[Rfam]
RNA sequence: AUUGCAAGUUCAAGGCAGAGCAGAAGUGCUCACAACACGGCCCUGCCAGAUUCCAGUGACCCUGCAAAUGCUGCU
Dot-bracket structure: .............[[[..(((((.((((.......)))].]]....(((..((....))..)))....).)))))
Numbered sequence: 001a002u003u004g005c006a007a008g009u010u011c012a013a014g015g016c017a018g019a020g021c022a023g024a025a026g027u028g029c030u031c032a033c034a035a036c037a038c039g040g041c042c043c044u045g046c047c048a049g050a051u052u053c054c055a056g057u058g059a060c061c062c063u064g065c066a067a068a069u070g071c072u073g074c075u
Stems, first nucleotide, its partner, number of pairs: 014042002016039001019075005025069001026038003047064003052059002